[Rfam]
RNA sequence: GAGACACCCUUAUGGGGCAUCACUUGCUUCGGUGGGGCUUUGGUGCUACUGAGUCUGCCCCAUGAGUGUGUUGCU
Numbered sequence: 001g002a003g004a005c006a007c008c009c010u011u012a013u014g015g016g017g018c019a020u021c022a023c024u025u026g027c028u029u030c031g032g033u034g035g036g037g038c039u040u041u042g043g044u045g046c047u048a049c050u051g052a053g054u055c056u057g058c059c060c061c062a063u064g065a066g067u068g069u070g071u072u073g074c075u
Stems, first nucleotide, its partner, number of pairs: 001074001003072005009066004014061006022054002029052005035047002037044002
Notes: The family of this 75-nucleotide RNA from Cnephaeus nilssonii is "mir-9229 microRNA precursor family". Gene Ontology terms of the family: RISC complex and miRNA-mediated post-transcriptional gene silencing. Lineage of the source: Eukaryota > Chordata > Euteleostomi > Sarcopterygii > Cnephaeus.